[Rfam]
RNA sequence: CCGGCUUGUGAUUGUCCAAACGCAAUUCUUGUCUCUGCGUCCGAGAGUUGGGUCUGGGCAUCACGAGCCAG
Numbered sequence: 001c002c003g004g005c006u007u008g009u010g011a012u013u014g015u016c017c018a019a020a021c022g023c024a025a026u027u028c029u030u031g032u033c034u035c036u037g038c039g040u041c042c043g044a045g046a047g048u049u050g051g052g053u054c055u056g057g058g059c060a061u062c063a064c065g066a067g068c069c070a071g
Stems, first nucleotide, its partner, number of pairs: 003069005009063004014059005021052001023050009
Record summary:
mir-219 microRNA precursor family: a 71-nucleotide RNA sequence from Varanus komodoensis. For this family Rfam cites "Computational identification of Drosophila microRNA genes" (Lai et al., Genome Biol, 2003). The match comes from Rfam's covariance-model search (64 bits). The family has 92 seed sequences and 1,318 matches in Rfam 15.1. NCBI's taxonomy places the organism under Eukaryota, Vertebrata, Gnathostomata, Toxicofera, Varanus. The base pairs follow the family's consensus structure, which was predicted with RNAalifold.